[Rfam]
RNA: nadA riboswitch
Organism: Acidobacteria bacterium AB60
RNA sequence: GGCCGCAACAUCCCCGCGGGCGGGAACCUCCUGGAUUCACGGAGGUUAGCGCGUUCGCUGCUGCC
Dot-bracket structure: (((.(((.....[[.((((((((.(((((((.........))))))).])])))))))))).)))
Numbered sequence: 001g002g003c004c005g006c007a008a009c010a011u012c013c014c015c016g017c018g019g020g021c022g023g024g025a026a027c028c029u030c031c032u033g034g035a036u037u038c039a040c041g042g043a044g045g046u047u048a049g050c051g052c053g054u055u056c057g058c059u060g061c062u063g064c065c
Stems, first nucleotide, its partner, number of pairs: 001065003005061003013051001014049001016058007023050001025047007